RNA sequence: AAUGGUUGCGAUGAGGAUAUAUAGCUCCCUCUUCUGAUUUAAAGUUGAAGAGAUUGGCUGGCAGAAUCGAACCUAUGACUUUAUUAGCCAUCACUGAGUAA
Numbered sequence: 001a002a003u004g005g006u007u008g009c010g011a012u013g014a015g016g017a018u019a020u021a022u023a024g025c026u027c028c029c030u031c032u033u034c035u036g037a038u039u040u041a042a043a044g045u046u047g048a049a050g051a052g053a054u055u056g057g058c059u060g061g062c063a064g065a066a067u068c069g070a071a072c073c074u075a076u077g078a079c080u081u082u083a084u085u086a087g088c089c090a091u092c093a094c095u096g097a098g099u100a101a
Stems, first nucleotide, its partner, number of pairs: 006101004

Rfam assigns this 101-nucleotide RNA from Cephalotus follicularis to the family "Small nucleolar RNA R30/Z108".
By type it is a C/D-box small nucleolar RNA.
The match comes from Rfam's covariance-model search (84 bits).
The source organism's lineage runs through Eukaryota, Magnoliopsida, eudicotyledons, Pentapetalae and Cephalotus.
Rfam's curators write: snoR30 is a C/D box small nucleolar RNA which acts as a methylation guide for 18S ribosomal RNA in plants.
The family is grouped with related families in Rfam's "SNORD100 clan".
On this family, see Marker et al., Curr Biol 2002: "Experimental RNomics. Identification of 140 Candidates for Small Non-Messenger RNAs in the Plant Arabidopsis thaliana".